[Rfam]
RNA: mir-7563 microRNA precursor family
RNA sequence: ACCGCGUACUUACCUACUAUAUAGUAGGCAAAAUACAUAUAUUAUCUACUAUAUAGUAGGCAAGUACACGGUUU
Numbered sequence: 001a002c003c004g005c006g007u008a009c010u011u012a013c014c015u016a017c018u019a020u021a022u023a024g025u026a027g028g029c030a031a032a033a034u035a036c037a038u039a040u041a042u043u044a045u046c047u048a049c050u051a052u053a054u055a056g057u058a059g060g061c062a063a064g065u066a067c068a069c070g071g072u073u074u
Base pairs, nucleotide, nucleotide: 001072002071003070004069006067007066008065009064010063011062013060014059015058017056018055019054020053021052022051023050024049025048026047027046030043031042033040034039